[Rfam]
RNA sequence: UUUUACUAUGUAAACUUCUUUGCAAACAAUACUAUUAUUUGACUAUUGUUUGCAAAGAAGUUUACAUAGUAAAA
Dot-bracket structure: ......(((((((((((((((((((.(((((............))))).)))))))))))))))))))......
Numbered sequence: 001u002u003u004u005a006c007u008a009u010g011u012a013a014a015c016u017u018c019u020u021u022g023c024a025a026a027c028a029a030u031a032c033u034a035u036u037a038u039u040u041g042a043c044u045a046u047u048g049u050u051u052g053c054a055a056a057g058a059a060g061u062u063u064a065c066a067u068a069g070u071a072a073a074a
Stems, first nucleotide, its partner, number of pairs: 007068019027048005
This 74-nucleotide sequence from Racocetra fulgida belongs to the Rfam family "mir-1 microRNA precursor family". The match comes from Rfam's covariance-model search (46 bits). The family's consensus secondary structure was predicted with RNAalifold. The literature on the family includes a 2001 paper in Science by Lee and Ambros, "An extensive class of small RNAs in Caenorhabditis elegans". From the family's description: This family represents the microRNA (miRNA) mir-1 family. miRNAs are transcribed as ~70nt precursors (modelled here) and subsequently processed by the Dicer enzyme to give a ~22nt product. In this case the mature sequence comes from the 3' arm of the precursor.